A member of the RNA family "Small nucleolar RNA snR60/Z15/Z230/Z193/J17", 82 nucleotides long. The family's RNA type in Rfam is C/D-box small nucleolar RNA. The family has 23 seed sequences and 3,592 matches in Rfam 15.1. Pairs were carried over by alignment from the consensus structure. For this family Rfam cites "A computational screen for methylation guide snoRNAs in yeast" (Lowe and Eddy, Science, 1999). The family is grouped with related families in Rfam's "SNORD77 clan".

RNA sequence: CCGAUACAAUGAUGAUAACAUAGUUCAGCAGACUAACGCUGAUGAGCAAUAUUAAGUCUUUCGCUCCUAUCUGAUGUAUCUG
Numbered sequence: 001c002c003g004a005u006a007c008a009a010u011g012a013u014g015a016u017a018a019c020a021u022a023g024u025u026c027a028g029c030a031g032a033c034u035a036a037c038g039c040u041g042a043u044g045a046g047c048a049a050u051a052u053u054a055a056g057u058c059u060u061u062c063g064c065u066c067c068u069a070u071c072u073g074a075u076g077u078a079u080c081u082g
Stems, first nucleotide, its partner, number of pairs: 004079005